[Rfam]
RNA sequence: AGCAAAAUGAUGAGUUUAUACUCCUGAAAUUUAUAUGUUGAAGAACAUAGUAUAAUGGUCUUCAAAGUUCUCUGAUUGCU
Numbered sequence: 001a002g003c004a005a006a007a008u009g010a011u012g013a014g015u016u017u018a019u020a021c022u023c024c025u026g027a028a029a030u031u032u033a034u035a036u037g038u039u040g041a042a043g044a045a046c047a048u049a050g051u052a053u054a055a056u057g058g059u060c061u062u063c064a065a066a067g068u069u070c071u072c073u074g075a076u077u078g079c080u
Stems, first nucleotide, its partner, number of pairs: 001080005
The family of this 80-nucleotide RNA sequence from Coptis chinensis is "Small nucleolar RNA R160". Rfam's curators write: snoR160 is a C/D box small nucleolar RNA, which acts as a methylation guide for 25S ribosomal RNA in plants. snoR160 has been alternatively named snoZ270 in rice. The pairing is the family consensus, mapped onto this sequence. The literature on the family includes a 2003 paper in Nucleic Acids Res by Chen et al., "The high diversity of snoRNAs in plants: identification and comparative study of 120 snoRNA genes from Oryza sativa". NCBI's taxonomy places the organism under Eukaryota, Viridiplantae, Streptophyta, Euphyllophyta, Coptis.